[Rfam]
JUMPstart RNA: a 38-nucleotide RNA from Photobacterium angustum. By type it is a cis-regulatory element.
RNA sequence: AAGCACUUUGGGAGCUUUAACCUAAGGGCGGUAGCGUA
Number, nucleotide and partner (000 for none) at each position: 001a000002a000003g000004c000005a000006c000007u000008u025009u024010g023011g022012g021013a000014g000015c000016u000017u000018u000019a000020a000021c012022c011023u010024a009025a008026g000027g000028g000029c000030g000031g000032u000033a000034g000035c000036g000037u000038a000